[Rfam]
The family of this 135-nucleotide RNA from Myotis brandtii is "U11 spliceosomal RNA". Pairs were carried over by alignment from the consensus structure, which is taken from published work. Rfam links the family to the GO terms pre-mRNA 5'-splice site binding, U11 snRNP and mRNA 5'-splice site recognition.
RNA sequence: AAAAAGGGCCUCUGUCGGUGAGUGGCACAUGUAGAGCAGCCUGGUUGCUCUACGUGCAGAAUCCACAUCAAGAGAUUUCAGGAGCAUAAUUGUUUGGUACUUGGGCAGCUGGUGAUCAUUGGUCCUGGAGCCCGC
Numbered sequence: 001a002a003a004a005a006g007g008g009c010c011u012c013u014g015u016c017g018g019u020g021a022g023u024g025g026c027a028c029a030u031g032u033a034g035a036g037c038a039g040c041c042u043g044g045u046u047g048c049u050c051u052a053c054g055u056g057c058a059g060a061a062u063c064c065a066c067a068u069c070a071a072g073a074g075a076u077u078u079c080a081g082g083a084g085c086a087u088a089a090u091u092g093u094u095u096g097g098u099a100c101u102u103g104g105g106c107a108g109c110u111g112g113u114g115a116u117c118a119u120u121g122g123u124c125c126u127g128g129a130g131c132c133c134g135c
Stems, first nucleotide, its partner, number of pairs: 008085002011082002013027005028056012059078005103133004109128004114124004
Dot-bracket structure: .......((.(((((((.....)))))((((((((((((.....))))))))))))..(((((..........)))))..)).)).................((((..((((.((((...)))))))).))))..